[Rfam]
RNA sequence: AAUAAACUGCUGAUAAGGCUAGUAGUAAUUAUCAGAUUUUUAGAGAGUCGAUGGUUGGUGUAAAUCGAUAGUUUGUAAUUAUGAAUCCACCUUUGAGGGACUACGAUGAGUAGUACGGGUAUACCGUUAUAUAAAUUGAGAGGAUAAAAAGAUUAUAUUUUUUUAUCAACUAGGGUGGCAACGCGGAGCUUUUCGUCCCUAUA
Numbered sequence: 001a002a003u004a005a006a007c008u009g010c011u012g013a014u015a016a017g018g019c020u021a022g023u024a025g026u027a028a029u030u031a032u033c034a035g036a037u038u039u040u041u042a043g044a045g046a047g048u049c050g051a052u053g054g055u056u057g058g059u060g061u062a063a064a065u066c067g068a069u070a071g072u073u074u075g076u077a078a079u080u081a082u083g084a085a086u087c088c089a090c091c092u093u094u095g096a097g098g099g100a101c102u103a104c105g106a107u108g109a110g111u112a113g114u115a116c117g118g119g120u121a122u123a124c125c126g127u128u129a130u131a132u133a134a135a136u137u138g139a140g141a142g143g144a145u146a147a148a149a150a151g152a153u154u155a156u157a158u159u160u161u162u163u164u165a166u167c168a169a170c171u172a173g174g175g176u177g178g179c180a181a182c183g184c185g186g187a188g189c190u191u192u193u194c195g196u197c198c199c200u201a202u203a
Stems, first nucleotide, its partner, number of pairs: 007098002015093004025082006036072003047069006100114005116126003143167010172200004183196005
T-box leader: a 203-nucleotide RNA from Clostridium fungisolvens.
Uncharged tRNA acts as the effector for transcription antitermination of genes in the T-box leader family. T-boxes are found upstream of many aminoacyl-tRNA synthetase genes and some amino acid biosynthetic genes usually in Gram-positive bacteria. The anticodon of a specific tRNA base pairs to a specifier sequence within the T-box motif, and the NCCA acceptor tail of the tRNA base pairs to a conserved bulge in the T-box antiterminator hairpin.
Gene Ontology term of the family: tRNA binding.
By type it is a cis-regulatory leader.
It scores 136 bits against the family's covariance model.